About this RNA
Metazoan signal recognition particle RNA: a 281-nucleotide sequence from Rousettus aegyptiacus. Rfam 15.1 lists 383,523 matches to the family in 1,221 species. For this family Rfam cites "Prediction of signal recognition particle RNA genes" (Regalia et al., Nucleic Acids Res, 2002). It scores 194 bits against the family's covariance model. The signal recognition particle (SRP) is a universally conserved ribonucleoprotein. It is involved in the co-translational targeting of proteins to membranes. The eukaryotic SRP consists of a 300-nucleotide 7S RNA and six proteins: SRPs 72, 68, 54, 19, 14, and 9. Rfam links the family to the GO terms signal recognition particle, endoplasmic reticulum targeting and SRP-dependent cotranslational protein targeting to membrane, signal sequence recognition. NCBI's taxonomy places the organism under Eukaryota, Eumetazoa, Craniata, Sarcopterygii, Rousettus. The family's consensus secondary structure is taken from published work.
RNA sequence: GCCGUAGUCCCAGCUACUCUGGAGGCUGAGGAAGGAGGAUUGCUUGAGCCCAGGAGUUCUGGGCUGCAGUGUGCUAUGCACAUCAGGUAUCCGCACUAAGUUCGGCAUCAGUAUGGUGACCUACCGGGAGCAGGGGACCACCAGGUUGCCUAAGGAGGGGUGAACUGACCCAGGAUGGAAAUGGAGCAGGUCAAACCUCCUGUGCUGAUCAGUAGUAGGAUCGUGCCUAUAAAUAGUCACUACAUUCCCGGCCUGGGCAACAUAGUGAGAUCCCGUCUCUA
Numbered sequence: 001g002c003c004g005u006a007g008u009c010c011c012a013g014c015u016a017c018u019c020u021g022g023a024g025g026c027u028g029a030g031g032a033a034g035g036a037g038g039a040u041u042g043c044u045u046g047a048g049c050c051c052a053g054g055a056g057u058u059c060u061g062g063g064c065u066g067c068a069g070u071g072u073g074c075u076a077u078g079c080a081c082a083u084c085a086g087g088u089a090u091c092c093g094c095a096c097u098a099a100g101u102u103c104g105g106c107a108u109c110a111g112u113a114u115g116g117u118g119a120c121c122u123a124c125c126g127g128g129a130g131c132a133g134g135g136g137a138c139c140a141c142c143a144g145g146u147u148g149c150c151u152a153a154g155g156a157g158g159g160g161u162g163a164a165c166u167g168a169c170c171c172a173g174g175a176u177g178g179a180a181a182u183g184g185a186g187c188a189g190g191u192c193a194a195a196c197c198u199c200c201u202g203u204g205c206u207g208a209u210c211a212g213u214a215g216u217a218g219g220a221u222c223g224u225g226c227c228u229a230u231a232a233a234u235a236g237u238c239a240c241u242a243c244a245u246u247c248c249c250g251g252c253c254u255g256g257g258c259a260a261c262a263u264a265g266u267g268a269g270a271u272c273c274c275g276u277c278u279c280u281a
Stems, first nucleotide, its partner, number of pairs: 008023003028279004034273003040268005048258007059251005065244002068241004073237005085228006091219002095216004100210001102208007109148004114143005121136002124133001126131001149155002156201005166193005176183002